The record is a 432-nucleotide part of an RNA from Metamycoplasma canadense, which matches "Bacterial large subunit ribosomal RNA" in Rfam. A search with the family's covariance model found it, with a score of 2750 bits. Its Rfam clan is "LSU clan". Pairs were carried over by alignment from the consensus structure, which is taken from published work.
[Rfam]
RNA sequence: CUCUCCGAAAUAGCUUUAGGGCUAGCGUGUAGUGUUAAGUGAUGGGGGUAGAGCACUGAAUAUGGAAUGGCGGCGCCUAGCUGUACUGACUAUAAUCAAACUCCGAAUACUAUCAUGAAUUACUAUGCAGUUGGUACAUCGGUGAUAACGUCGAUGCACGCGAGGGGAACAACCCAGAUCGUCAGCUAAGGUCCCAAAAUUGUGUUAAGUGAGAAAGGUUGUGGAGUUUCUUAAACAGCUAGGAUGUUGGCUUAGAAGCAGCCAUCGUUUAAAGAGUGCGUAAUAGCUCACUAGUCGAGAGACUCUGUGCCGAUAAUUCAACGGGACUAAAACACAAUACCGAAGCUACGGGCAUGAAAAUGCGUUAGGAGAGCGUUGUAAGGGCAUUGAAGUCAGACUGUGAAGACUGGUGGAGCGCUUACAAGUGAGAAU
Numbered sequence: 001c002u003c004u005c006c007g008a009a010a011u012a013g014c015u016u017u018a019g020g021g022c023u024a025g026c027g028u029g030u031a032g033u034g035u036u037a038a039g040u041g042a043u044g045g046g047g048g049u050a051g052a053g054c055a056c057u058g059a060a061u062a063u064g065g066a067a068u069g070g071c072g073g074c075g076c077c078u079a080g081c082u083g084u085a086c087u088g089a090c091u092a093u094a095a096u097c098a099a100a101c102u103c104c105g106a107a108u109a110c111u112a113u114c115a116u117g118a119a120u121u122a123c124u125a126u127g128c129a130g131u132u133g134g135u136a137c138a139u140c141g142g143u144g145a146u147a148a149c150g151u152c153g154a155u156g157c158a159c160g161c162g163a164g165g166g167g168a169a170c171a172a173c174c175c176a177g178a179u180c181g182u183c184a185g186c187u188a189a190g191g192u193c194c195c196a197a198a199a200u201u202g203u204g205u206u207a208a209g210u211g212a213g214a215a216a217g218g219u220u221g222u223g224g225a226g227u228u229u230c231u232u233a234a235a236c237a238g239c240u241a242g243g244a245u246g247u248u249g250g251c252u253u254a255g256a257a258g259c260a261g262c263c264a265u266c267g268u269u270u271a272a273a274g275a276g277u278g279c280g281u282a283a284u285a286g287c288u289c290a291c292u293a294g295u296c297g298a299g300a301g302a303c304u305c306u307g308u309g310c311c312g313a314u315a316a317u318u319c320a321a322c323g324g325g326a327c328u329a330a331a332a333c334a335c336a337a338u339a340c341c342g343a344a345g346c347u348a349c350g351g352g353c354a355u356g357a358a359a360a361u362g363c364g365u366u367a368g369g370a371g372a373g374c375g376u377u378g379u380a381a382g383g384g385c386a387u388u389g390a391a392g393u394c395a396g397a398c399u400g401u402g403a404a405g406a407c408u409g410g411u412g413g414a415g416c417g418c419u420u421a422c423a424a425g426u427g428a429g430a431a432u
Stems, first nucleotide, its partner, number of pairs: 001373006011024005026130001027128007039116007051104001052102002057098003061094004069086001070084005134159002137156007164175003179351004184347003190341003199338007217311003221308010238295005244268003249263003269273001274289001278287002352363004374427001376424007384416002392411005398405002